Shown here is a 95-nucleotide RNA sequence from Rhodovulum iodosum, a member of the family "Rhodo-rpoB RNA".
The organism belongs to Rhodovulum, within Bacteria.
By type it is a cis-regulatory element.
[Rfam]
RNA sequence: GGUUCGGGAGCGGCCGGUGGGACGGCGCGCAGGAAUUGAACCCGACCCCCUUAUUUCGUGAGCGGCGCGGCCCCGUAGCCCGACGGCGGCAUGCG
Numbered sequence: 001g002g003u004u005c006g007g008g009a010g011c012g013g014c015c016g017g018u019g020g021g022a023c024g025g026c027g028c029g030c031a032g033g034a035a036u037u038g039a040a041c042c043c044g045a046c047c048c049c050c051u052u053a054u055u056u057c058g059u060g061a062g063c064g065g066c067g068c069g070g071c072c073c074c075g076u077a078g079c080c081c082g083a084c085g086g087c088g089g090c091a092u093g094c095g
Stems, first nucleotide, its partner, number of pairs: 001042005010030003013026004066095004070090001071088001073086003